Shown here is a 139-nucleotide RNA sequence from Solibacillus silvestris, a member of the family "PyrR binding site".
It is annotated as a cis-regulatory element.
Lineage of the source: Bacteria > Bacillota > Bacilli > Caryophanales > Solibacillus silvestris.

[Rfam]
Nucleotides: 139
Base pairs, nucleotide, nucleotide: 005036006035007034008033009032015030016029017028018027019026049080050079053076054075056073057072058071059070060069061068062067105132106131107130108129109128110127111126112125113124114123115122116121
Number, partner (000 for none) and nucleotide at each position: 001000u002000u003000c004000a005036c006035c007034u008033u009032u010000a011000a012000u013000g014000g015030c016029a017028g018027u019026c020000c021000a022000g023000a024000g025000a026019g027018g028017c029016u030015g031000a032009g033008a034007a035006g036005g037000g038000a039000u040000a041000a042000u043000g044000u045000g046000a047000a048000g049080c050079a051000a052000c053076g054075g055000a056073a057072u058071u059070u060069u061068u062067g063000u064000g065000c066000g067062c068061a069060a070059a071058a072057a073056u074000a075054c076053c077000c078000g079050u080049g081000u082000g083000c084000a085000g086000u087000u088000u089000u090000u091000c092000a093000a094000c095000a096000u097000g098000a099000c100000u101000u102000u103000u104000c105132a106131a107130a108129c109128c110127c111126u112125c113124u114123a115122g116121a117000a118000c119000u120000u121116u122115c123114u124113a125112g126111a127110g128109g129108g130107u131106u132105u133000u134000u135000u136000g137000u138000u139000u